[Rfam]
RNA sequence: GGGGCUGAACGGUUUCGACUGCGUGAGUAGAUCCAAGGGAAGCGUGCCGGUGCAGGCAGGAGACCACCGUAAGCGUCGCUGCAACCAAUUAAGCGCCAACUCCAAGCAGAGCGCUGACUCCUUCGCCCUCGCUGCCUAAGCAGCAGGCGUGAGUCUGUCAGUCCGGGUUCGCCCUCGGCCCGGGUACUGGCAUCAGCUAGAGGGCUCACCGUCAUGAUCGGUCGCGGAGAUUGACGGGACAUCACACAGCGACUGGGGUCGUCAUCCGGACGGGUUCGCGAGAUCCGGAGACCCGAGCAGAGGCAUAGCGGACUGCGCACGGAGAAGCCUCGGUGACACUGCGGAGGACCCGGGUUCGAUUCCCGGCAGCUCCACCG
Numbered sequence: 001g002g003g004g005c006u007g008a009a010c011g012g013u014u015u016c017g018a019c020u021g022c023g024u025g026a027g028u029a030g031a032u033c034c035a036a037g038g039g040a041a042g043c044g045u046g047c048c049g050g051u052g053c054a055g056g057c058a059g060g061a062g063a064c065c066a067c068c069g070u071a072a073g074c075g076u077c078g079c080u081g082c083a084a085c086c087a088a089u090u091a092a093g094c095g096c097c098a099a100c101u102c103c104a105a106g107c108a109g110a111g112c113g114c115u116g117a118c119u120c121c122u123u124c125g126c127c128c129u130c131g132c133u134g135c136c137u138a139a140g141c142a143g144c145a146g147g148c149g150u151g152a153g154u155c156u157g158u159c160a161g162u163c164c165g166g167g168u169u170c171g172c173c174c175u176c177g178g179c180c181c182g183g184g185u186a187c188u189g190g191c192a193u194c195a196g197c198u199a200g201a202g203g204g205c206u207c208a209c210c211g212u213c214a215u216g217a218u219c220g221g222u223c224g225c226g227g228a229g230a231u232u233g234a235c236g237g238g239a240c241a242u243c244a245c246a247c248a249g250c251g252a253c254u255g256g257g258g259u260c261g262u263c264a265u266c267c268g269g270a271c272g273g274g275u276u277c278g279c280g281a282g283a284u285c286c287g288g289a290g291a292c293c294c295g296a297g298c299a300g301a302g303g304c305a306u307a308g309c310g311g312a313c314u315g316c317g318c319a320c321g322g323a324g325a326a327g328c329c330u331c332g333g334u335g336a337c338a339c340u341g342c343g344g345a346g347g348a349c350c351c352g353g354g355u356u357c358g359a360u361u362c363c364c365g366g367c368a369g370c371u372c373c374a375c376c377g
Base pairs, nucleotide, nucleotide: 001373002372003371004370005369006368007367019346020345022343023342024341025340033333034332036330037329038328043321044320045319046318047317048069049068050067051066052065056082057081058080059079128147129146131144132143133142134141135140156192157191158190159189160188161187162184163183164182165181166180167179168178169177171205172204173203174202175201176200209237210236211235212234213233214232220254221253222252223251224250225249256294257293258292259291260290262288263287274313275312276311277310282306350366351365352364353363354362
The record is a 377-nucleotide RNA from Tomitella fengzijianii, which matches "transfer-messenger RNA" in Rfam.
The family's RNA type in Rfam is non-coding RNA gene.
Gene Ontology term of the family: RNA catabolic process.